[Rfam]
This 108-nucleotide RNA from Desulfonatronum thiosulfatophilum belongs to the Rfam family "c-di-GMP-I riboswitch aptamer". Rfam's curators write: GEMM was predicted in a large-scale screen for bacterial structured RNA regulatory elements. Lineage of the source: Bacteria > Thermodesulfobacteriota > Desulfovibrionia > Desulfonatronaceae > Desulfonatronum.
RNA sequence: GUCUGAUAAGGGCAAACCAUCCGAAAGGGUGGGACGCAAAGCCGACGGCCUAAAUUUUGCCCGCCUCGCACAGCAAAGCGGGUGGGACAUGGCGGCAGGGUUGCCGGA
Numbered sequence: 001g002u003c004u005g006a007u008a009a010g011g012g013c014a015a016a017c018c019a020u021c022c023g024a025a026a027g028g029g030u031g032g033g034a035c036g037c038a039a040a041g042c043c044g045a046c047g048g049c050c051u052a053a054a055u056u057u058u059g060c061c062c063g064c065c066u067c068g069c070a071c072a073g074c075a076a077a078g079c080g081g082g083u084g085g086g087a088c089a090u091g092g093c094g095g096c097a098g099g100g101u102u103g104c105c106g107g108a
Stems, first nucleotide, its partner, number of pairs: 012037002017032006040102004047096001048093003055087010